[Rfam]
RNA: mir-551 microRNA precursor family
RNA sequence: CGGCCUUUGAAAUCAAAGAUGGGUGAGACCUCAUGAGCAAAUACAGGCGACCCAUACUUGGUUUCAGGGGCUG
Numbered sequence: 001c002g003g004c005c006u007u008u009g010a011a012a013u014c015a016a017a018g019a020u021g022g023g024u025g026a027g028a029c030c031u032c033a034u035g036a037g038c039a040a041a042u043a044c045a046g047g048c049g050a051c052c053c054a055u056a057c058u059u060g061g062u063u064u065c066a067g068g069g070g071c072u073g
Stems, first nucleotide, its partner, number of pairs: 002072006009065006016058001021053004029047003